[Rfam]
RNA sequence: UACUGCAUCAGGAACUGAUUGGAUAAGAAUCAGUCACCAUCAGUUCCUAAUGCAUUG
Numbered sequence: 001u002a003c004u005g006c007a008u009c010a011g012g013a014a015c016u017g018a019u020u021g022g023a024u025a026a027g028a029a030u031c032a033g034u035c036a037c038c039a040u041c042a043g044u045u046c047c048u049a050a051u052g053c054a055u056u057g
Base pairs, nucleotide, nucleotide: 004054005053006052007051008050010048011047012046013045014044015043016042017041018040020039021038022037
The family of this 57-nucleotide sequence from Equus caballus is "mir-217 microRNA precursor family".
The family has 28 seed sequences and 698 matches in Rfam 15.1.
Rfam links the family to the GO terms RISC complex and miRNA-mediated post-transcriptional gene silencing.
A reference for the family is Lim et al. (2003), "Vertebrate microRNA genes", Science.
The source organism's lineage runs through Eukaryota, Opisthokonta, Sarcopterygii, Perissodactyla and Equus.
Pairs were carried over by alignment from the consensus structure, which was predicted with RNAalifold.